[Rfam]
RNA sequence: UCUCAGUUUCCGUGGGAGUGAGAAGCAUGGGGAAAUUUAGCCCUACUCAUUGCUUCGGUAGGCUGGCGA
Numbered sequence: 001u002c003u004c005a006g007u008u009u010c011c012g013u014g015g016g017a018g019u020g021a022g023a024a025g026c027a028u029g030g031g032g033a034a035a036u037u038u039a040g041c042c043c044u045a046c047u048c049a050u051u052g053c054u055u056c057g058g059u060a061g062g063c064u065g066g067c068g069a
Base pairs, nucleotide, nucleotide: 003066004065005064006063007062008061009060010058011057012056014054015053017051018050019049020048021047022046028045029044030043031042032041

The record is a 69-nucleotide RNA sequence from Oryza sativa, which matches "MIR5516 microRNA precursor family" in Rfam. The family's consensus secondary structure was predicted with RNAalifold. Rfam's curators put it in the seed alignment. Gene Ontology terms of the family: RISC complex and miRNA-mediated post-transcriptional gene silencing.